[Rfam]
Shown here is a 45-nucleotide RNA from Oikopleura dioica, a member of the family "Histone 3' UTR stem-loop". For this family Rfam cites "Formation of the 3' end of histone mRNA" (Dominski and Marzluff, Gene, 1999). The family's RNA type in Rfam is cis-regulatory element.

RNA sequence: AAACCGGCCCUUUUCAGGGCCACAAAAUAAUUAUUUUAUAAAAUG
Numbered sequence: 001a002a003a004c005c006g007g008c009c010c011u012u013u014u015c016a017g018g019g020c021c022a023c024a025a026a027a028u029a030a031u032u033a034u035u036u037u038a039u040a041a042a043a044u045g
Base pairs, nucleotide, nucleotide: 006021007020008019009018010017011016
Lineage of the source: Eukaryota > Bilateria > Appendicularia > Copelata > Oikopleura. The base pairs follow the family's consensus structure, which is taken from published work.